[Rfam]
RNA sequence: AAAUGUCUUGUCAGCCUUCUCUACUCGAACUCAUACGGAUCACUUGUUGAUCAAAACAUUCGGGAGGGAAGUCCCCGGACCCAGGCUAGAAAGUGGCACACAUGAGAGUAGCAACCUGCCUCUAGCAGAUCUCAUUGGCCAAGAUGAACCAAUGCGUUCUAGCUCAUCUGCGAGCCAGGCGAUCGUCAUAGCACAGCAAUAGAAGGAGCUGUUCGUACAGCUAACACUACGGGGCUCAUUCGACAAGAACAUU
Number, nucleotide and partner (000 for none) at each position: 001a000002a253003a252004u251005g250006u249007c000008u246009u245010g244011u243012c242013a000014g000015c206016c205017u204018u203019c202020u201021c000022u000023a000024c064025u063026c062027g061028a060029a059030c000031u000032c000033a000034u000035a000036c000037g000038g052039a051040u050041c049042a048043c000044u000045u000046g000047u000048u042049g041050a040051u039052c038053a000054a000055a000056a000057c000058a000059u029060u028061c027062g026063g025064g024065a000066g000067g000068g000069a000070a236071g235072u000073c234074c233075c232076c231077g000078g000079a000080c000081c000082c000083a000084g000085g097086c096087u095088a094089g000090a000091a000092a000093g000094u088095g087096g086097c085098a109099c108100a000101c106102a000103u000104g000105a000106g101107a000108g099109u098110a000111g180112c179113a000114a000115c000116c178117u177118g176119c000120c174121u173122c000123u000124a000125g171126c170127a169128g168129a000130u000131c000132u000133c000134a000135u000136u000137g164138g163139c162140c000141a000142a000143g000144a000145u000146g000147a000148a000149c000150c000151a158152a157153u000154g000155c000156g000157u152158u151159c000160u000161a000162g139163c138164u137165c000166a000167u000168c128169u127170g126171c125172g000173a121174g120175c000176c118177a117178g116179g112180c111181g000182a000183u000184c000185g000186u000187c000188a000189u000190a000191g000192c000193a000194c000195a000196g000197c000198a000199a000200u000201a020202g019203a018204a017205g016206g015207a000208g221209c220210u219211g218212u217213u000214c000215g000216u000217a212218c211219a210220g209221c208222u000223a000224a000225c000226a000227c000228u000229a000230c000231g076232g075233g074234g073235c071236u070237c000238a000239u000240u000241c000242g012243a011244c010245a009246a008247g000248a000249a006250c005251a004252u003253u002